RNA: Eukaryotic large subunit ribosomal RNA, nucleotides 684 to 964
RNA sequence: GAGUCUAACAUAUCUGCGAGUGUUUGGGUGUCAAACCCGAGCGCGUAAUGAAAGUGAACGUAGGAGGGAUGCGCAAGCAGCACCUUCGACCGAUCCGGAUCUUUUGUGAUGGAUUUGAGUAAGAGCAUAUAUGCUGGGACCCGAAAGAUGGUGAACUAUGCCUGAAUAGGGCGAAGCCAGGGGAAACUCUGGUGGAGGCUCGUAGCGAUUCUGACGUGCAAAUCGAUCGUCGAAUUUGGGUAUAGGGGCGAAAGACUAAUCGAACCAUCUAGUAGCUGGUU
Numbered sequence: 001g002a003g004u005c006u007a008a009c010a011u012a013u014c015u016g017c018g019a020g021u022g023u024u025u026g027g028g029u030g031u032c033a034a035a036c037c038c039g040a041g042c043g044c045g046u047a048a049u050g051a052a053a054g055u056g057a058a059c060g061u062a063g064g065a066g067g068g069a070u071g072c073g074c075a076a077g078c079a080g081c082a083c084c085u086u087c088g089a090c091c092g093a094u095c096c097g098g099a100u101c102u103u104u105u106g107u108g109a110u111g112g113a114u115u116u117g118a119g120u121a122a123g124a125g126c127a128u129a130u131a132u133g134c135u136g137g138g139a140c141c142c143g144a145a146a147g148a149u150g151g152u153g154a155a156c157u158a159u160g161c162c163u164g165a166a167u168a169g170g171g172c173g174a175a176g177c178c179a180g181g182g183g184a185a186a187c188u189c190u191g192g193u194g195g196a197g198g199c200u201c202g203u204a205g206c207g208a209u210u211c212u213g214a215c216g217u218g219c220a221a222a223u224c225g226a227u228c229g230u231c232g233a234a235u236u237u238g239g240g241u242a243u244a245g246g247g248g249c250g251a252a253a254g255a256c257u258a259a260u261c262g263a264a265c266c267a268u269c270u271a272g273u274a275g276c277u278g279g280u281u
Stems, first nucleotide, its partner, number of pairs: 005137003009133005015127003020044003025039005048055002063087005070079003089120002091117003094113003101106001140279002143276001147269006156245011167233001169201004176193007205230004210226002213224002247257002